[Rfam]
RNA sequence: ACUCACUGAGGGCGGAACUGGCAGCCGCCGCCGGAUAGCUGAAAAGCUUGAUUAGGAGAUGCAGGUUAGUCACCCUGCCUUGAGU
Numbered sequence: 001a002c003u004c005a006c007u008g009a010g011g012g013c014g015g016a017a018c019u020g021g022c023a024g025c026c027g028c029c030g031c032c033g034g035a036u037a038g039c040u041g042a043a044a045a046g047c048u049u050g051a052u053u054a055g056g057a058g059a060u061g062c063a064g065g066u067u068a069g070u071c072a073c074c075c076u077g078c079c080u081u082g083a084g085u
Base pairs, nucleotide, nucleotide: 001085002084003083004082005081008079011029012028013027014026015025019072020071021070022069031056033053034052036050037049038048061078062077063076064075065074
RNA: skipping-rope RNA